RNA sequence: GCCGCGCCUAGGUUGAUCCCCGAAAACCCGGACACCCUGCCGGAUUGGCGCGGCACCUCUCUAACAGGG
Numbered sequence: 001g002c003c004g005c006g007c008c009u010a011g012g013u014u015g016a017u018c019c020c021c022g023a024a025a026a027c028c029c030g031g032a033c034a035c036c037c038u039g040c041c042g043g044a045u046u047g048g049c050g051c052g053g054c055a056c057c058u059c060u061c062u063a064a065c066a067g068g069g
Base pairs, nucleotide, nucleotide: 001054002053003052004051005050006049007048008047011021012020028043029042030041031040035069036068037067038066039065